[Rfam]
RNA sequence: GGCGCGUUGGCAGAGUGGCCAUGCAGCGGAUUGCAAAUCCGUUAACCUCGGUUCGACUCCGGGACGCGCCU
Numbered sequence: 001g002g003c004g005c006g007u008u009g010g011c012a013g014a015g016u017g018g019c020c021a022u023g024c025a026g027c028g029g030a031u032u033g034c035a036a037a038u039c040c041g042u043u044a045a046c047c048u049c050g051g052u053u054c055g056a057c058u059c060c061g062g063g064a065c066g067c068g069c070c071u
Stems, first nucleotide, its partner, number of pairs: 001070007010024003026042005047063005
RNA: tRNA
Organism: Erwinia billingiae